[Rfam]
This 83-nucleotide sequence from Olea europaea belongs to the Rfam family "Small nucleolar RNA Z159/U59". The family is grouped with related families in Rfam's "SNORD59 clan". The literature on the family includes a 2003 paper in Nucleic Acids Res by Chen et al., "The high diversity of snoRNAs in plants: identification and comparative study of 120 snoRNA genes from Oryza sativa". A search with the family's covariance model found it, with a score of 42 bits.
RNA sequence: GACUCUAAGGAUGAUCAGAAAACUUUCGCCUUUCCUGAGAUGAUAUCGUGAAGAAAAUCUCUGGAGACCUGAGCUGAAGAGAC
Numbered sequence: 001g002a003c004u005c006u007a008a009g010g011a012u013g014a015u016c017a018g019a020a021a022a023c024u025u026u027c028g029c030c031u032u033u034c035c036u037g038a039g040a041u042g043a044u045a046u047c048g049u050g051a052a053g054a055a056a057a058u059c060u061c062u063g064g065a066g067a068c069c070u071g072a073g074c075u076g077a078a079g080a081g082a083c
Stems, first nucleotide, its partner, number of pairs: 003081004